[Rfam]
RNA sequence: UGUCAAUGAUGAUAAAAGGAAACGCUUCUUUCUCAAAAAAACAUUCGCAGUGGCCGCCUAAGAGCUUUCGCCCCGCCAGGCUUGAGAGCUAAUGCUGCCUAACUCUUCCUUGGAUGUCUGAGACG
Numbered sequence: 001u002g003u004c005a006a007u008g009a010u011g012a013u014a015a016a017a018g019g020a021a022a023c024g025c026u027u028c029u030u031u032c033u034c035a036a037a038a039a040a041a042c043a044u045u046c047g048c049a050g051u052g053g054c055c056g057c058c059u060a061a062g063a064g065c066u067u068u069c070g071c072c073c074c075g076c077c078a079g080g081c082u083u084g085a086g087a088g089c090u091a092a093u094g095c096u097g098c099c100u101a102a103c104u105c106u107u108c109c110u111u112g113g114a115u116g117u118c119u120g121a122g123a124c125g
Stems, first nucleotide, its partner, number of pairs: 001125004064089006
Overview: This 125-nucleotide RNA sequence from Amborella trichopoda belongs to the Rfam family "Small nucleolar RNA SNORD14". A reference for the family is Samarsky et al. (1996), "An essential domain in Saccharomyces cerevisiae U14 snoRNA is absent in vertebrates, but conserved in other yeasts", Nucleic Acids Res. NCBI's taxonomy places the organism under Eukaryota, Euphyllophyta, Spermatophyta, Magnoliopsida, Amborella. Rfam's curators write: U14 small nucleolar RNA (U14 snoRNA) is required for early cleavages of eukaryotic precursor rRNAs. In yeasts, this molecule possess a stem-loop region (known as the Y-domain) which is essential for function. By type it is a C/D-box small nucleolar RNA. The family's consensus secondary structure was predicted with PFOLD.